[Rfam]
RNA sequence: CUCUUAUCACGAGAGGUGGAGGGAUGUGCCCGAUGAAACCCGGCAACCGGCAAGGAAUUUUCCUUGAAAAGGUGCCAAUUCACACAGAGCCGGAAAACGGCUCUGAAAGAUGAGAG
Numbered sequence: 001c002u003c004u005u006a007u008c009a010c011g012a013g014a015g016g017u018g019g020a021g022g023g024a025u026g027u028g029c030c031c032g033a034u035g036a037a038a039c040c041c042g043g044c045a046a047c048c049g050g051c052a053a054g055g056a057a058u059u060u061u062c063c064u065u066g067a068a069a070a071g072g073u074g075c076c077a078a079u080u081c082a083c084a085c086a087g088a089g090c091c092g093g094a095a096a097a098c099g100g101c102u103c104u105g106a107a108a109g110a111u112g113a114g115a116g
Stems, first nucleotide, its partner, number of pairs: 001116008013041001015040003021031003025084004042076004047072002051066004080108001085105008
RNA: SAM riboswitch aptamer (S box leader)